[Rfam]
RNA: Small nucleolar RNA SNORD115
Organism: Carlito syrichta
RNA sequence: CGUUCAGUGAUGAAACCUUUGUAUUGUGUUUAGAGAGGUGAUGACUUAAAUGUCACUCUCAAUAGAAUUAUGCUGAGGUCC
Numbered sequence: 001c002g003u004u005c006a007g008u009g010a011u012g013a014a015a016c017c018u019u020u021g022u023a024u025u026g027u028g029u030u031u032a033g034a035g036a037g038g039u040g041a042u043g044a045c046u047u048a049a050a051u052g053u054c055a056c057u058c059u060c061a062a063u064a065g066a067a068u069u070a071u072g073c074u075g076a077g078g079u080c081c
Base pairs, nucleotide, nucleotide: 002080004078005075006074008072009071